The record is a 73-nucleotide RNA from Flavonifractor sp. An52, which matches "Fluoride riboswitch aptamer (crcB RNA motif)" in Rfam. Its family is annotated with positive regulation of gene expression and response to fluoride in the Gene Ontology. The match comes from Rfam's covariance-model search (41 bits). The literature on the family includes a 2012 paper in Science by Baker et al., "Widespread genetic switches and toxicity resistance proteins for fluoride".

[Rfam]
RNA sequence: CCGAAAUACGGGGAUGAGGUCCGCCCGGGGCAUUUGCCCGAACCGCCGUUUGGCUGAUGACUUCUGCAAUUUG
Number, nucleotide and partner (000 for none) at each position: 001c000002c000003g000004a000005a000006a000007u000008a000009c000010g025011g024012g000013g022014a000015u000016g064017a063018g062019g061020u060021c059022c013023g000024c011025c010026c000027g000028g000029g000030g000031c000032a000033u000034u000035u000036g000037c000038c000039c000040g000041a000042a000043c000044c000045g054046c053047c052048g000049u000050u000051u000052g047053g046054c045055u000056g000057a000058u000059g021060a020061c019062u018063u017064c016065u000066g000067c000068a000069a000070u000071u000072u000073g000